[Rfam]
RNA sequence: GGGGGCGAUACGGAUUCGACGACGGUAACGAACCCUAAGGUGCAUGCCGUGAUGGUAGCCAAUCACGUUAAUCCAAAGCUGCAAACUAUUAGUUGCCAACGACGACAACUACGGUGCCCAACUGGCUGCGUAAGCAGCCCGUGAAGCACCAACUAGUGGCUUCGGCCCUAGCGGUCUUUAGCAAGGUGCCAGUACCGCGCUACUGACUGUCAUAUAGAACUGGAUCGCUGUGAAGCCCGCCUGAGGUGGAACUGCUAAAACUUAUUCAGGCUCGCCAAUUACGUCCUGCCCGUUGGGCUGUAUGCGGCUAAAUCAAUUAACGGAAACUAAGCAUGUAGAGCCGAAGGCAGAGUACUGGCGGACGCGGGUUCAACUCCCGCCGCCUCCACCA
Numbered sequence: 001g002g003g004g005g006c007g008a009u010a011c012g013g014a015u016u017c018g019a020c021g022a023c024g025g026u027a028a029c030g031a032a033c034c035c036u037a038a039g040g041u042g043c044a045u046g047c048c049g050u051g052a053u054g055g056u057a058g059c060c061a062a063u064c065a066c067g068u069u070a071a072u073c074c075a076a077a078g079c080u081g082c083a084a085a086c087u088a089u090u091a092g093u094u095g096c097c098a099a100c101g102a103c104g105a106c107a108a109c110u111a112c113g114g115u116g117c118c119c120a121a122c123u124g125g126c127u128g129c130g131u132a133a134g135c136a137g138c139c140c141g142u143g144a145a146g147c148a149c150c151a152a153c154u155a156g157u158g159g160c161u162u163c164g165g166c167c168c169u170a171g172c173g174g175u176c177u178u179u180a181g182c183a184a185g186g187u188g189c190c191a192g193u194a195c196c197g198c199g200c201u202a203c204u205g206a207c208u209g210u211c212a213u214a215u216a217g218a219a220c221u222g223g224a225u226c227g228c229u230g231u232g233a234a235g236c237c238c239g240c241c242u243g244a245g246g247u248g249g250a251a252c253u254g255c256u257a258a259a260a261c262u263u264a265u266u267c268a269g270g271c272u273c274g275c276c277a278a279u280u281a282c283g284u285c286c287u288g289c290c291c292g293u294u295g296g297g298c299u300g301u302a303u304g305c306g307g308c309u310a311a312a313u314c315a316a317u318u319a320a321c322g323g324a325a326a327c328u329a330a331g332c333a334u335g336u337a338g339a340g341c342c343g344a345a346g347g348c349a350g351a352g353u354a355c356u357g358g359c360g361g362a363c364g365c366g367g368g369u370u371c372a373a374c375u376c377c378c379g380c381c382g383c384c385u386c387c388a389c390c391a
Stems, first nucleotide, its partner, number of pairs: 001387007020360002023357005034347003039342003043335005048067005055082005121142002124139006172209005179202004185196003189223005227255002230252002239272001241270002274308003280302003284297003288327001292321003364380005
transfer-messenger RNA: a 391-nucleotide RNA from Kineobactrum salinum. The match comes from Rfam's covariance-model search (201 bits). The family's consensus secondary structure is taken from published work. The family's RNA type in Rfam is non-coding RNA gene.